T-box leader: a 228-nucleotide sequence from Bacillus anthracis. Rfam's curators put it in the seed alignment. Lineage of the source: Bacteria > Bacillati > Bacillaceae > Bacillus > Bacillus anthracis. The family's consensus secondary structure is taken from published work.
[Rfam]
RNA sequence: AAGAAAGCGUUGAGAGGGAGGAGUAGUUGAUUGUGAAGCCUCACAGAGAGUCGGUGGUUGCUGGAAACCGAUGGUUCACGUCGACGAACAUCGCCCUUGAGUGCUAAGCUGAAGCGUUUGUCUAGGCUUAGACGGUAGCUCCGUUAUUAGCUAGACUCAUUUAUGGGUCACUGAGGCAAGAGUAUUCUUGCAAAGAAGGGUGGUACCGCGAAAUCUUUCGUCCCUUCA
Numbered sequence: 001a002a003g004a005a006a007g008c009g010u011u012g013a014g015a016g017g018g019a020g021g022a023g024u025a026g027u028u029g030a031u032u033g034u035g036a037a038g039c040c041u042c043a044c045a046g047a048g049a050g051u052c053g054g055u056g057g058u059u060g061c062u063g064g065a066a067a068c069c070g071a072u073g074g075u076u077c078a079c080g081u082c083g084a085c086g087a088a089c090a091u092c093g094c095c096c097u098u099g100a101g102u103g104c105u106a107a108g109c110u111g112a113a114g115c116g117u118u119u120g121u122c123u124a125g126g127c128u129u130a131g132a133c134g135g136u137a138g139c140u141c142c143g144u145u146a147u148u149a150g151c152u153a154g155a156c157u158c159a160u161u162u163a164u165g166g167g168u169c170a171c172u173g174a175g176g177c178a179a180g181a182g183u184a185u186u187c188u189u190g191c192a193a194a195g196a197a198g199g200g201u202g203g204u205a206c207c208g209c210g211a212a213a214u215c216u217u218u219c220g221u222c223c224c225u226u227c228a
Stems, first nucleotide, its partner, number of pairs: 007102002015097004026085006039074002050072006104131007133143003176191006197225004208221005